[Rfam]
RNA sequence: AAGAAUACGAAAGGUCCUCUCCUCCUCCCUGGACCGAUCGUUUCGGCGGCACCCUCCUCCUCCUCCCUGAGGGUGCCGCCAACCAGAUACCGAGGGCCCUAUCCUCCUCCCUGGGCCCAAGGG
Number, nucleotide and partner (000 for none) at each position: 001a000002a000003g000004a000005a000006u000007a041008c040009g039010a000011a000012a000013g035014g034015u033016c032017c031018u000019c000020u000021c000022c000023u000024c000025c000026u000027c000028c000029c000030u000031g017032g016033a015034c014035c013036g000037a000038u000039c009040g008041u007042u000043u000044c000045g000046g079047c078048g077049g076050c075051a074052c073053c072054c071055u070056c000057c000058u000059c000060c000061u000062c000063c000064u000065c000066c000067c000068u000069g000070a055071g054072g053073g052074u051075g050076c049077c048078g047079c046080c000081a000082a000083c000084c000085a000086g000087a000088u000089a000090c122091c121092g000093a000094g118095g117096g116097c115098c114099c113100u000101a000102u000103c000104c000105u000106c000107c000108u000109c000110c000111c000112u000113g099114g098115g097116c096117c095118c094119a000120a000121g091122g090123g000